[Rfam]
The record is a 357-nucleotide sequence from Oricola cellulosilytica, which matches "Alphaproteobacteria transfer-messenger RNA" in Rfam. The family's RNA type in Rfam is non-coding RNA gene. Taxonomically the source falls in Oricola (Bacteria, Pseudomonadota, Alphaproteobacteria, Hyphomicrobiales). The base pairs follow the family's consensus structure, which is taken from published work. It scores 309 bits against the family's covariance model. Rfam describes the family as follows. Bacterial tmRNA, also known as 10Sa RNA or SsrA, is named for its dual tRNA and mRNA-like properties. A reference for the family is Williams and Bartel (1996), "Phylogenetic analysis of tmRNA secondary structure", RNA.
RNA sequence: CCCUUUGAAAUCGCGGCGCGAAGUGUCUAUAUCUGGAAGUGCCGGGCAACCGGCUAUGACAAUAAACUGGCGAUGCAAUAAACCAUUCGGACCCGGGGGCGGUACCCGGCGCCUCCACCAUAAACGGUUCCGCCGAACCGCUUGUGAUGGGGGCGAAACAGGAUCGACGAGGGUGUAAAGAUCGUUCUUUUGUCCGGUAUGAUACCACCGUUAUCGGGUCAAUUCAGUAGUUGCAAACGACAACUAUGCAGAGGCACGUCUCGCUGCCUAAUGGCGGUGCGACAGCUUCAAAUUAAGUCCUAGGGGUUUGCCCCUCUAGGCGGGGUUCGGAGGCACCUGGCAACAGAAGCCUUCACU
Numbered sequence: 001c002c003c004u005u006u007g008a009a010a011u012c013g014c015g016g017c018g019c020g021a022a023g024u025g026u027c028u029a030u031a032u033c034u035g036g037a038a039g040u041g042c043c044g045g046g047c048a049a050c051c052g053g054c055u056a057u058g059a060c061a062a063u064a065a066a067c068u069g070g071c072g073a074u075g076c077a078a079u080a081a082a083c084c085a086u087u088c089g090g091a092c093c094c095g096g097g098g099g100c101g102g103u104a105c106c107c108g109g110c111g112c113c114u115c116c117a118c119c120a121u122a123a124a125c126g127g128u129u130c131c132g133c134c135g136a137a138c139c140g141c142u143u144g145u146g147a148u149g150g151g152g153g154c155g156a157a158a159c160a161g162g163a164u165c166g167a168c169g170a171g172g173g174u175g176u177a178a179a180g181a182u183c184g185u186u187c188u189u190u191u192g193u194c195c196g197g198u199a200u201g202a203u204a205c206c207a208c209c210g211u212u213a214u215c216g217g218g219u220c221a222a223u224u225c226a227g228u229a230g231u232u233g234c235a236a237a238c239g240a241c242a243a244c245u246a247u248g249c250a251g252a253g254g255c256a257c258g259u260c261u262c263g264c265u266g267c268c269u270a271a272u273g274g275c276g277g278u279g280c281g282a283c284a285g286c287u288u289c290a291a292a293u294u295a296a297g298u299c300c301u302a303g304g305g306g307u308u309u310g311c312c313c314c315u316c317u318a319g320g321c322g323g324g325g326u327u328c329g330g331a332g333g334c335a336c337c338u339g340g341c342a343a344c345a346g347a348a349g350c351c352u353u354c355a356c357u
Base pairs, nucleotide, nucleotide: 041054042053043052044051045050058194059193060192061191062190069186070185071184072183073182074181083173084172087170088169089168093109094108095107096106097105110155111154112153113152114151115150116149195210196209197208198207200221201220202219205217206216323338324337325336326335329354330353331352332351333350334349